[Rfam]
RNA sequence: GGUGUGGGUGAUGAAAACUUGACCUUAGGUGGAUCUUUUUUUGUGCCGUUUUGGUACAAAUCUUUAGGCUCACCAAUGGUAGGACACGUCAUAGUUACACUGACGCACU
Numbered sequence: 001g002g003u004g005u006g007g008g009u010g011a012u013g014a015a016a017a018c019u020u021g022a023c024c025u026u027a028g029g030u031g032g033a034u035c036u037u038u039u040u041u042u043g044u045g046c047c048g049u050u051u052u053g054g055u056a057c058a059a060a061u062c063u064u065u066a067g068g069c070u071c072a073c074c075a076a077u078g079g080u081a082g083g084a085c086a087c088g089u090c091a092u093a094g095u096u097a098c099a100c101u102g103a104c105g106c107a108c109u
Base pairs, nucleotide, nucleotide: 001109002108003107004106005105006104
A member of the RNA family "Small nucleolar RNA SNORD46" from Kryptolebias marmoratus, 109 nucleotides long. By type it is a C/D-box small nucleolar RNA. On this family, see Nicoloso et al., J Mol Biol 1996: "Intron-encoded, antisense small nucleolar RNAs: the characterization of nine novel species points to their direct role as guides for the 2'-O-ribose methylation of rRNAs". From the family's description: U40 is a C/D box small nucleolar RNA, also known as snoZ153 in plants. The human sequence has also been annotated in the sequence databases as U46. U40 is encoded in intron 2 of the ribosomal protein S8 gene in human, and is hypothesised to guide methylation of 2'-O-ribose residues on 28S ribosomal RNA. This family represents vertebrate U40.